[Rfam]
A member of the RNA family "Bacterial small signal recognition particle RNA" from Novosphingobium fuchskuhlense, 95 nucleotides long. Taxonomically the source falls in Novosphingobium (Bacteria, Pseudomonadota, Alphaproteobacteria, Sphingomonadales). It scores 56 bits against the family's covariance model. Gene Ontology terms of the family: SRP-dependent cotranslational protein targeting to membrane, signal sequence recognition and signal recognition particle, plasma membrane targeting. Rfam classes the family as a non-coding RNA gene.
RNA sequence: GCGGGAGUCGGGCGGACGUUAGCUGUCGCCAACCUGGUCAGGUCCGGAAGGAAGCAGCCACAACGAUGUGCGGCGGGUCGCCCGGCUCCUUUCAA
Numbered sequence: 001g002c003g004g005g006a007g008u009c010g011g012g013c014g015g016a017c018g019u020u021a022g023c024u025g026u027c028g029c030c031a032a033c034c035u036g037g038u039c040a041g042g043u044c045c046g047g048a049a050g051g052a053a054g055c056a057g058c059c060a061c062a063a064c065g066a067u068g069u070g071c072g073g074c075g076g077g078u079c080g081c082c083c084g085g086c087u088c089c090u091u092u093c094a095a
Stems, first nucleotide, its partner, number of pairs: 004089011017075004024068005035060004043052003
About the family: The signal recognition particle (SRP) is a universally conserved ribonucleoprotein involved in the co-translational targeting of proteins to membranes.